[Rfam]
The family of this 89-nucleotide sequence from Pipistrellus kuhlii is "mir-9261 microRNA precursor family".
RNA sequence: AACAAUUUGUCCCGCGUCCCGCGGCGUUUUCAAAAAGUCAAAAAUGGAGACUUUUUAAAAACGCCGCGGGACGCGGGACAACUUGUUAA
Numbered sequence: 001a002a003c004a005a006u007u008u009g010u011c012c013c014g015c016g017u018c019c020c021g022c023g024g025c026g027u028u029u030u031c032a033a034a035a036a037g038u039c040a041a042a043a044a045u046g047g048a049g050a051c052u053u054u055u056u057a058a059a060a061a062c063g064c065c066g067c068g069g070g071a072c073g074c075g076g077g078a079c080a081a082c083u084u085g086u087u088a089a
Stems, first nucleotide, its partner, number of pairs: 001087005007081024032056004
Overview:
The organism belongs to Pipistrellus, within Eukaryota.